This 204-nucleotide RNA sequence from Cottoperca gobio belongs to the Rfam family "Small nucleolar RNA SNORA53".
The match comes from Rfam's covariance-model search (83 bits).
Rfam's curators write: The snoRNA ACA53 belongs to the H/ACA family of pseudouridylation guide snoRNAs.
The family's RNA type in Rfam is H/ACA-box small nucleolar RNA.
RNA sequence: AACACGCUCCUUAGAUCCAUCUCUGGAGGACGCUGUGCUCUGAGCAUAGCUCCUCAGCAGCUUACUGGCUGUACAGUUGGAGGUGCUUGAGUCAUUGGCGUGUGAGAACAGUCUACCUGUCUCCCCAGCCCAACUGCAACACUGGCAACCCUGUCAUCUACAGACGGGGAGCUCCCAGUGAUGCAAGCCUGGGGGACGGACAUU
Numbered sequence: 001a002a003c004a005c006g007c008u009c010c011u012u013a014g015a016u017c018c019a020u021c022u023c024u025g026g027a028g029g030a031c032g033c034u035g036u037g038c039u040c041u042g043a044g045c046a047u048a049g050c051u052c053c054u055c056a057g058c059a060g061c062u063u064a065c066u067g068g069c070u071g072u073a074c075a076g077u078u079g080g081a082g083g084u085g086c087u088u089g090a091g092u093c094a095u096u097g098g099c100g101u102g103u104g105a106g107a108a109c110a111g112u113c114u115a116c117c118u119g120u121c122u123c124c125c126c127a128g129c130c131c132a133a134c135u136g137c138a139a140c141a142c143u144g145g146c147a148a149c150c151c152u153g154u155c156a157u158c159u160a161c162a163g164a165c166g167g168g169g170a171g172c173u174c175c176c177a178g179u180g181a182u183g184c185a186a187g188c189c190u191g192g193g194g195g196a197c198g199g200a201c202a203u204u
Base pairs, nucleotide, nucleotide: 002103003102004101005100006099007098008097010091011090012089013088014087018085019084020083021082022081023080024079025078026055027054028053029052030051032050033049034048037045038044039043057072058071059070060069061068062067117199118198119197120196121195124192127190128189130187140180141179142178143177144176145175147173149168150167151166